[Rfam]
RNA sequence: AGCUAAAAUAUCGAGGUCAUAUGAUCUGAAGUAGUAUCUUAUGUUGAUAUGUCCAUUCAUGGUCUUCAGUGUUCUGAUUCU
Numbered sequence: 001a002g003c004u005a006a007a008a009u010a011u012c013g014a015g016g017u018c019a020u021a022u023g024a025u026c027u028g029a030a031g032u033a034g035u036a037u038c039u040u041a042u043g044u045u046g047a048u049a050u051g052u053c054c055a056u057u058c059a060u061g062g063u064c065u066u067c068a069g070u071g072u073u074c075u076g077a078u079u080c081u
Stems, first nucleotide, its partner, number of pairs: 001081002005079002
RNA: Small nucleolar RNA R160